[Rfam]
RNA sequence: AAGGCGGAUCCCGAAAAGCCGUAACAGAGUAAGGA
Numbered sequence: 001a002a003g004g005c006g007g008a009u010c011c012c013g014a015a016a017a018g019c020c021g022u023a024a025c026a027g028a029g030u031a032a033g034g035a
Base pairs, nucleotide, nucleotide: 003020004019005018010034011033
The record is a 35-nucleotide sequence, which matches "DUF805b RNA" in Rfam. Pairs were carried over by alignment from the consensus structure, which is taken from published work.